A member of the RNA family "Bacterial RNase P class A" from a Steroidobacteraceae bacterium, 406 nucleotides long.
The organism belongs to Steroidobacteraceae, within Bacteria.
A search with the family's covariance model found it, with a score of 319 bits.
Rfam classes the family as a ribozyme.

RNA sequence: GGAGUCAGCCAGGCAACCGCUGCGUGUUAUCGCUUGCGAUAAUGCGGGGAGGAAAGUCCGGGCUCCAAGGGCACAGCGCCAGGUAACGCCUGGGGGACGUGAGUCCACGGCAAGUGCAACAGAAAGCAAACCGCCUAAGUGUCAUCGCAAGGUGCCAACGGUAAGGGUGAAAGGGUGCGGUAAGAGCGCACCGCGUCGGUGGUAACACUCGACGGCACGGUAAACCCCGCUCGGAGCAAGACCAAAUAGGGGAACAAGUGGUCGCAUUUGUCUAGCAAUAGGCCGAUGUAGAUCGCACGUAUGGCCCAUACAGGUUCCCGGGUAGGUCGCUUGAGGUCUGCGGUGACGCAGAUCCCAGAGGAAUGGUUGCUCACGACAGAACCCGGCUUAUCGGCUGACUCCUUUC
Numbered sequence: 001g002g003a004g005u006c007a008g009c010c011a012g013g014c015a016a017c018c019g020c021u022g023c024g025u026g027u028u029a030u031c032g033c034u035u036g037c038g039a040u041a042a043u044g045c046g047g048g049g050a051g052g053a054a055a056g057u058c059c060g061g062g063c064u065c066c067a068a069g070g071g072c073a074c075a076g077c078g079c080c081a082g083g084u085a086a087c088g089c090c091u092g093g094g095g096g097a098c099g100u101g102a103g104u105c106c107a108c109g110g111c112a113a114g115u116g117c118a119a120c121a122g123a124a125a126g127c128a129a130a131c132c133g134c135c136u137a138a139g140u141g142u143c144a145u146c147g148c149a150a151g152g153u154g155c156c157a158a159c160g161g162u163a164a165g166g167g168u169g170a171a172a173g174g175g176u177g178c179g180g181u182a183a184g185a186g187c188g189c190a191c192c193g194c195g196u197c198g199g200u201g202g203u204a205a206c207a208c209u210c211g212a213c214g215g216c217a218c219g220g221u222a223a224a225c226c227c228c229g230c231u232c233g234g235a236g237c238a239a240g241a242c243c244a245a246a247u248a249g250g251g252g253a254a255c256a257a258g259u260g261g262u263c264g265c266a267u268u269u270g271u272c273u274a275g276c277a278a279u280a281g282g283c284c285g286a287u288g289u290a291g292a293u294c295g296c297a298c299g300u301a302u303g304g305c306c307c308a309u310a311c312a313g314g315u316u317c318c319c320g321g322g323u324a325g326g327u328c329g330c331u332u333g334a335g336g337u338c339u340g341c342g343g344u345g346a347c348g349c350a351g352a353u354c355c356c357a358g359a360g361g362a363a364u365g366g367u368u369g370c371u372c373a374c375g376a377c378a379g380a381a382c383c384c385g386g387c388u389u390a391u392c393g394g395c396u397g398a399c400u401c402c403u404u405u406c
Base pairs, nucleotide, nucleotide: 001402002401003400004399005398006397007396008395009394010393011391012371013370014369015368016367017366018365020049021048023046024045025044026043027042028041029040030039031038054389055388056387058386059385060384061383062382063236064235065234066233069307070306071305072304075231076230077229078228079093080092081091082090083089094108095106096105097104098103109227110226114225115224116221117220131166132165133162134161135160139156174192175191176190177189178188179187193216194214195213196212197211198210199208200207201206240328241327242326243325250319251318252317253316254315255314299311300310301309302308335354336353337352338351339350340349341348342347
Dot-bracket structure: ((((((((((((((((((.((.(((((((((......))))))))).))....[[[.[[[[[((((..[[[[..(((((((((.....)))))(((((....)))).)((...((((.............(((((...(................)...)))..)).......((((((.......))))))(((((((((....))).))))).)...))..)))))))).))))...((((......((((((...........................................((((.]]]]))))..)))))).....))))......((((((((....))))))))..........)))))))..........]]]]]]]].).))))))))))....